[Rfam]
RNA: 6S / SsrS RNA
RNA sequence: CAUAAGCUGCGUUGUACGUAAUCAUAAUAAAGUUUUAACCUUUAAGCUGUAACAGGGAGUUUUAAUUGGAACCGGAAUGACAGGCCUUCGUCCAUUUGGACAUGGAGGACAUGCAGAAAAGUUCCUGCGAACACCCACUUUGAGGAGUGGUGGUUUAAAACUUUCUUAUAAUCCAUUACGGCAAAUGCGGCUCCAUU
Numbered sequence: 001c002a003u004a005a006g007c008u009g010c011g012u013u014g015u016a017c018g019u020a021a022u023c024a025u026a027a028u029a030a031a032g033u034u035u036u037a038a039c040c041u042u043u044a045a046g047c048u049g050u051a052a053c054a055g056g057g058a059g060u061u062u063u064a065a066u067u068g069g070a071a072c073c074g075g076a077a078u079g080a081c082a083g084g085c086c087u088u089c090g091u092c093c094a095u096u097u098g099g100a101c102a103u104g105g106a107g108g109a110c111a112u113g114c115a116g117a118a119a120a121g122u123u124c125c126u127g128c129g130a131a132c133a134c135c136c137a138c139u140u141u142g143a144g145g146a147g148u149g150g151u152g153g154u155u156u157a158a159a160a161c162u163u164u165c166u167u168a169u170a171a172u173c174c175a176u177u178a179c180g181g182c183a184a185a186u187g188c189g190g191c192u193c194c195a196u197u
Stems, first nucleotide, its partner, number of pairs: 005192007012184004017180003031162004036157003039153002055136003059132004068125005079114001085108007